[Rfam]
RNA sequence: GGAUGUGAGGGCGAUCUGGCAGCAACAUCUGUCACCCCAUUGAUCUCCAGGGUUGAUUUGGUUGAUCUGGCUGGCUAGACGGCUUUCCCCUUCCUCCCUCACCACUCCAUGUGAGUCCCUCCCAGAGCUGCACACUCAGUUGAAGAGGACAACCUUCCCUGAUAGAGGUAAACUAUUCAUUGGUCAACAGUAUAGGGUAGCUGUGCUCCCCUGCUAAAACCUCCAAAGAAGCUCAAGGUCCACUUAUAGGGGAACAUAGGGUAGUCAAGCUUCCAAGACUGCAGACACAUCCAAGUGAGGCACUUCAUGGGGCAUUCUGCCAUUGUUU
Numbered sequence: 001g002g003a004u005g006u007g008a009g010g011g012c013g014a015u016c017u018g019g020c021a022g023c024a025a026c027a028u029c030u031g032u033c034a035c036c037c038c039a040u041u042g043a044u045c046u047c048c049a050g051g052g053u054u055g056a057u058u059u060g061g062u063u064g065a066u067c068u069g070g071c072u073g074g075c076u077a078g079a080c081g082g083c084u085u086u087c088c089c090c091u092u093c094c095u096c097c098c099u100c101a102c103c104a105c106u107c108c109a110u111g112u113g114a115g116u117c118c119c120u121c122c123c124a125g126a127g128c129u130g131c132a133c134a135c136u137c138a139g140u141u142g143a144a145g146a147g148g149a150c151a152a153c154c155u156u157c158c159c160u161g162a163u164a165g166a167g168g169u170a171a172a173c174u175a176u177u178c179a180u181u182g183g184u185c186a187a188c189a190g191u192a193u194a195g196g197g198u199a200g201c202u203g204u205g206c207u208c209c210c211c212u213g214c215u216a217a218a219a220c221c222u223c224c225a226a227a228g229a230a231g232c233u234c235a236a237g238g239u240c241c242a243c244u245u246a247u248a249g250g251g252g253a254a255c256a257u258a259g260g261g262u263a264g265u266c267a268a269g270c271u272u273c274c275a276a277g278a279c280u281g282c283a284g285a286c287a288c289a290u291c292c293a294a295g296u297g298a299g300g301c302a303c304u305u306c307a308u309g310g311g312g313c314a315u316u317c318u319g320c321c322a323u324u325g326u327u328u
Base pairs, nucleotide, nucleotide: 001108002107003106005102006101007100008099009098010097011096013093014092018090019089025086027084029082030081031080032079033078035074036073037070038069039068042067043066044065045064047061048060116171118168119167120166121165122139125136127135140162141161142160147158148157149156200270201269202268206264207263209261210260211259212258213257221252222251223250224249227247229245230244231243293328294327295326297323299321300320301319302316304314306312
Dot-bracket structure: (((.(((((((.((...((.....(.(.(((((.(((((..((((.((...........))..)))))))..))...))))).).)..)).))..)))))))...))).......(.(((((..(.(.......))..)(((....(((......))).)))..))))..)............................(((...((.(((((.......((((..(.(((...........))).).))))....))))).))...)))......................(((.(.((((.(.(.....).).)..))).)..)))
Shown here is a 328-nucleotide RNA sequence from Todus mexicanus, a member of the family "7SK RNA". Lineage of the source: Eukaryota > Opisthokonta > Euteleostomi > Todidae > Todus. It scores 278 bits against the family's covariance model.